The family of this 82-nucleotide RNA from Triplophysa rosa is "mir-221 microRNA precursor family".
It scores 78 bits against the family's covariance model.
The family's consensus secondary structure was predicted with RNAalifold.
On this family, see Soares et al., BMC Genomics 2009: "Parallel DNA pyrosequencing unveils new zebrafish microRNAs".
[Rfam]
RNA sequence: CUCAUCGUCUGCUCAGUAGUCAGUGUAGAUUCUGUCCGUUUGUCAGCAGCUACAUCUGGCUACUGGGUCUCUGAUGACCCCC
Numbered sequence: 001c002u003c004a005u006c007g008u009c010u011g012c013u014c015a016g017u018a019g020u021c022a023g024u025g026u027a028g029a030u031u032c033u034g035u036c037c038g039u040u041u042g043u044c045a046g047c048a049g050c051u052a053c054a055u056c057u058g059g060c061u062a063c064u065g066g067g068u069c070u071c072u073g074a075u076g077a078c079c080c081c082c
Base pairs, nucleotide, nucleotide: 013066014065015064016063017062018061020059021058022057023055024054025053026052027051028050032049033048034047035046